[Rfam]
RNA: FMN riboswitch aptamer (RFN element)
Organism: Corynebacterium provencense
RNA sequence: AAGCAUUCUCAGGGCGGGGUGGAAGUCCCCACCGGCGGUGAAAGCCCGCGAGCGCCACCUCCACCAGGUGGGUCCAGCAGAUCCGGUGUGAUUCCGGAGCCGACGGUCACAGUCCGGACGGGAGAGAAAGGCU
Number, nucleotide and partner (000 for none) at each position: 001a000002a000003g000004c130005a000006u128007u127008c126009u125010c124011a000012g000013g000014g000015c000016g000017g029018g028019g027020u000021g000022g000023a000024a000025g000026u000027c019028c018029c017030c000031a113032c112033c102034g101035g049036c048037g047038g046039u000040g000041a000042a000043a000044g100045c099046c038047c037048g036049c035050g000051a000052g078053c077054g000055c000056c000057a000058c000059c000060u000061c000062c000063a000064c000065c000066a000067g000068g000069u000070g000071g000072g000073u000074c000075c000076a000077g053078c052079a000080g000081a000082u098083c097084c096085g095086g094087u000088g000089u000090g000091a000092u000093u000094c086095c085096g084097g083098a082099g045100c044101c034102g033103a000104c116105g115106g114107u000108c000109a000110c000111a000112g032113u031114c106115c105116g104117g000118a000119c000120g000121g000122g000123a000124g010125a009126g008127a007128a006129a000130g004131g000132c000133u000